[Rfam]
RNA sequence: AAAUGAAAGCAGAAGCACCCGCUUCUCGCCUUAGCUGACAGUGUCACUGGGCUGGAUAUUGGAGACCUUAUAUCAAUGAUAUAAGUCUGAAUAAUCGCGGGAUCUGUUUACAGAGCCUGUUUUUUAUUGUAU
Numbered sequence: 001a002a003a004u005g006a007a008a009g010c011a012g013a014a015g016c017a018c019c020c021g022c023u024u025c026u027c028g029c030c031u032u033a034g035c036u037g038a039c040a041g042u043g044u045c046a047c048u049g050g051g052c053u054g055g056a057u058a059u060u061g062g063a064g065a066c067c068u069u070a071u072a073u074c075a076a077u078g079a080u081a082u083a084a085g086u087c088u089g090a091a092u093a094a095u096c097g098c099g100g101g102a103u104c105u106g107u108u109u110a111c112a113g114a115g116c117c118u119g120u121u122u123u124u125u126a127u128u129g130u131a132u
Base pairs, nucleotide, nucleotide: 011026012025013024014023015022016021028052029051030050036046037045038044039043098119099118100117101116103114104113105112106111
Dot-bracket structure: ..........((((((....)))))).(((.....((((...))))...))).............................................((((.((((....)))).)))).............
The record is a 132-nucleotide sequence, which matches "Ribosomal protein L20 leader" in Rfam. Rfam classes the family as a cis-regulatory leader. For this family Rfam cites "Diverse mechanisms for regulating ribosomal protein synthesis in Escherichia coli" (Zengel and Lindahl, Prog Nucleic Acid Res Mol Biol, 1994). A search with the family's covariance model found it, with a score of 59 bits. Rfam's curators write: This family is a putative r-protein leader autoregulatory structure found in B. subtilis and other low-GC Gram-positive bacteria. It is located in the 5' untranslated regions of mRNAs encoding initiation factor 3 followed by ribosomal proteins L35 and L20 (infC-rpmI-rplT). A Rho-independent transcription terminator structure that is probably involved in regulation is included at the 3' end.